[Rfam]
RNA sequence: GUGAGGUGAUGAUGAAGUUUAUCCAUUCUCUGAGUGCGGUGGUGCUGCCCUCCUGCAGCACCCUGAUUCCUGUUCUAGGGUCUGGGUGCUGGGCAGCCUCCAGAGACCCUCCUGUCUCCCAGUGUCCUACUGGGGGCUGCUGUGGUCUUUGGCUGGCUGCCUACAGGAGUGAAGUGGUGCCGGGAUGGUUGGAGCCCCUCUUUUGGUGGGGCUCCAUCCUCACUGAGACGAGGGAUGCUGUCUGAUCAC
Numbered sequence: 001g002u003g004a005g006g007u008g009a010u011g012a013u014g015a016a017g018u019u020u021a022u023c024c025a026u027u028c029u030c031u032g033a034g035u036g037c038g039g040u041g042g043u044g045c046u047g048c049c050c051u052c053c054u055g056c057a058g059c060a061c062c063c064u065g066a067u068u069c070c071u072g073u074u075c076u077a078g079g080g081u082c083u084g085g086g087u088g089c090u091g092g093g094c095a096g097c098c099u100c101c102a103g104a105g106a107c108c109c110u111c112c113u114g115u116c117u118c119c120c121a122g123u124g125u126c127c128u129a130c131u132g133g134g135g136g137c138u139g140c141u142g143u144g145g146u147c148u149u150u151g152g153c154u155g156g157c158u159g160c161c162u163a164c165a166g167g168a169g170u171g172a173a174g175u176g177g178u179g180c181c182g183g184g185a186u187g188g189u190u191g192g193a194g195c196c197c198c199u200c201u202u203u204u205g206g207u208g209g210g211g212c213u214c215c216a217u218c219c220u221c222a223c224u225g226a227g228a229c230g231a232g233g234g235a236u237g238c239u240g241u242c243u244g245a246u247c248a249c
Stems, first nucleotide, its partner, number of pairs: 010248004017241002023234002026232003030227002034223002038181004043176004048171001050169006057162001059088005065082001068080004093160006106146002112139001114137003118134007183221002188218001190216004195211004
Dot-bracket structure: .........((((...((....((.(((.((..((..((((.((((.(.((((((.(.(((((.(..((((.....)))).).)))))....((((((.......((....(.(((.(((((((...)))))))))).).....))........)))))).).)))))).).)))).)))).((...(.((((.((((.........)))).)))).).))))..))..))))).....))...)))).